tRNA: a 75-nucleotide RNA from Aureispira anguillae. It scores 64 bits against the family's covariance model. Its family is annotated with triplet codon-amino acid adaptor activity in the Gene Ontology. The base pairs follow the family's consensus structure, which is taken from published work. The family's RNA type in Rfam is transfer RNA. The source organism's lineage runs through Bacteria, Pseudomonadati, Bacteroidota, Saprospirales and Aureispira.
RNA sequence: CGGAACGUAGCUCAGUUGGUUUAGAGCAUUACCUUGACAGGGUAGGGGUCGUUGGUUCGAAUCCAAUCGUUCCGA
Number, nucleotide and partner (000 for none) at each position: 001c074002g073003g072004a071005a070006c069007g068008u000009a000010g027011c026012u025013c024014a000015g000016u000017u000018g000019g000020u000021u000022u000023a000024g013025a012026g011027c010028a000029u045030u044031a043032c042033c041034u000035u000036g000037a000038c000039a000040g000041g033042g032043u031044a030045g029046g000047g000048g000049u000050c000051g067052u066053u065054g064055g063056u000057u000058c000059g000060a000061a000062u000063c055064c054065a053066a052067u051068c007069g006070u005071u004072c003073c002074g001075a000